A member of the RNA family "Glycine riboswitch aptamer" from Microbacterium lacticum, 109 nucleotides long. The organism belongs to Microbacterium, within Bacteria. It scores 58 bits against the family's covariance model. Rfam's curators write: This family represents the bacterial glycine riboswitch.
[Rfam]
RNA sequence: AUGACGCGCGCGGGAGAGCCCCGGCAUCCUCGUCCUUCGAGGCGAUGCCGAGCACCGAAGGAGCAAGCCUCCCCGCCAAUCUCUCAGGUCCGCGUACCGCACGCGUCCG
Numbered sequence: 001a002u003g004a005c006g007c008g009c010g011c012g013g014g015a016g017a018g019c020c021c022c023g024g025c026a027u028c029c030u031c032g033u034c035c036u037u038c039g040a041g042g043c044g045a046u047g048c049c050g051a052g053c054a055c056c057g058a059a060g061g062a063g064c065a066a067g068c069c070u071c072c073c074c075g076c077c078a079a080u081c082u083c084u085c086a087g088g089u090c091c092g093c094g095u096a097c098c099g100c101a102c103g104c105g106u107c108c109g
Base pairs, nucleotide, nucleotide: 006104007103008102010100011099012098013097020052022050023049024048025047026046027045028044054089055088056087057085058084061083062082063081067076068075